[Rfam]
RNA: Acido-Lenti-1 RNA
Organism: Pontiella desulfatans
RNA sequence: CCUUGGGCGUUGCCCAAGGCUAAAUUGUAUUGUGCUUUCAGCACA
Dot-bracket structure: ((((((((...))))))))............(((((...))))).